RNA sequence: GUAAUGUUUCUUGCUCAAAUGAGUAUUCCAGCCACAGUUUGCCUGCAGCUUGCAUAUAUAUAUAUAUAUAUAUAUAGCGCUGGUGCUUCUGCAAUUCUGAGAUGCUCAUUUGAGCAAGCAGCGUUAC
Number, nucleotide and partner (000 for none) at each position: 001g000002u000003a000004a124005u123006g122007u121008u120009u000010c118011u117012u116013g115014c114015u113016c112017a111018a110019a109020u108021g107022a106023g105024u104025a103026u102027u101028c000029c099030a098031g000032c000033c000034a000035c000036a000037g000038u000039u000040u000041g000042c000043c000044u000045g000046c000047a000048g000049c000050u000051u000052g000053c000054a000055u000056a000057u000058a000059u000060a000061u000062a000063u000064a000065u000066a000067u000068a000069u000070a000071u000072a000073u000074a000075u000076a000077g000078c000079g000080c000081u000082g000083g000084u000085g000086c000087u000088u000089c000090u000091g000092c000093a000094a000095u000096u000097c000098u030099g029100a000101g027102a026103u025104g024105c023106u022107c021108a020109u019110u018111u017112g016113a015114g014115c013116a012117a011118g010119c000120a008121g007122c006123g005124u004125u000126a000127c000
Shown here is a 127-nucleotide RNA sequence from Malus domestica, a member of the family "MIR828 microRNA precursor family". Rfam 15.1 lists 204 matches to the family in 134 species. Lineage of the source: Eukaryota > Embryophyta > eudicotyledons > fabids > Malus. For this family Rfam cites "A diverse and evolutionarily fluid set of microRNAs in Arabidopsis thaliana" (Rajagopalan et al., Genes Dev, 2006). Rfam links the family to the GO terms miRNA-mediated post-transcriptional gene silencing and RISC complex.